[Rfam]
RNA sequence: CGCUCUCUCAGGUUCUGGCAAUGGCCCUCGGAUUUGGCCAGAAUCUUUUUGGCCGGCACCUCGUGGUGUCCGGCCUUUUUUC
Dot-bracket structure: .........((((((((((.....((...)).....))))))))))....((((((((((....)))).)))))).......
Rfam assigns this 82-nucleotide RNA sequence from Burkholderia sp. lig30 to the family "Burkholderia sRNA 54". Rfam's curators write: Identified by RNA-seq, RACE and Northern blot. NCBI's taxonomy places the organism under Bacteria, Pseudomonadati, Betaproteobacteria, Burkholderiaceae, Burkholderia. It is annotated as a small RNA. The family's consensus secondary structure was predicted with RNAfold. Its family is annotated with bacterial biofilm matrix in the Gene Ontology.